Shown here is a 115-nucleotide RNA from Hibiscus syriacus, a member of the family "MIR162_1 microRNA precursor family".
Rfam links the family to the GO terms RISC complex and miRNA-mediated post-transcriptional gene silencing.
[Rfam]
Nucleotides: 115
Stems, first nucleotide, its partner, number of pairs: 013103003018098003022094004027089007036080003
Number, partner (000 for none) and nucleotide at each position: 001000c002000g003000u004000a005000g006000g007000g008000a009000c010000a011000c012000u013103g014102g015101a016000g017000g018098c019097a020096g021000c022094g023093g024092u025091u026000c027089a028088u029087c030086g031085a032084u033083c034000u035000c036080u037079u038078c039000c040000u041000g042000g043000u044000a045000a046000a047000u048000u049000u050000g051000u052000u053000g054000u055000u056000g057000u058000a059000c060000a061000g062000a063000g064000u065000a066000a067000c068000a069000c070000a071000a072000a073000u074000a075000c076000a077000u078038g079037a080036a081000u082000c083033g084032a085031u086030c087029g088028a089027u090000a091025a092024a093023c094022c095000u096020c097019u098018g099000c100000a101015u102014c103013c104000a105000g106000c107000g108000c109000c110000u111000u112000a113000u114000a115000u